[Rfam]
mir-8229 microRNA precursor family: a 59-nucleotide RNA from Pristionchus pacificus. Rfam links the family to the GO terms RISC complex and miRNA-mediated post-transcriptional gene silencing. The organism belongs to Pristionchus, within Eukaryota.

RNA sequence: CAUUGUCUUCACGAGGCUAAACGCGAUUUUGAAAGCGUUUGCAUCGUGCGAGGCUAAGG
Dot-bracket structure: (.(.((((.(((((.((.((((((..........)))))))).)))))..)))).).).